Overview: Shown here is a 99-nucleotide sequence from Coptis chinensis, a member of the family "Small nucleolar RNA Z103". NCBI's taxonomy places the organism under Eukaryota, Euphyllophyta, Ranunculales, Ranunculaceae, Coptis. It is annotated as a C/D-box small nucleolar RNA. The literature on the family includes a 2003 paper in Nucleic Acids Res by Chen et al., "The high diversity of snoRNAs in plants: identification and comparative study of 120 snoRNA genes from Oryza sativa".
RNA sequence: UUGGAUGUGAUGAGCUUUUCCCCAGAUUAUCGACUAUGAUUAUACUAUGCGUUUAUAUUUCUCGUUUUUGAGAUCUAUCAAGCCAGGACUCUGAUCCAU
Numbered sequence: 001u002u003g004g005a006u007g008u009g010a011u012g013a014g015c016u017u018u019u020c021c022c023c024a025g026a027u028u029a030u031c032g033a034c035u036a037u038g039a040u041u042a043u044a045c046u047a048u049g050c051g052u053u054u055a056u057a058u059u060u061c062u063c064g065u066u067u068u069u070g071a072g073a074u075c076u077a078u079c080a081a082g083c084c085a086g087g088a089c090u091c092u093g094a095u096c097c098a099u
Base pairs, nucleotide, nucleotide: 002098003097004096005095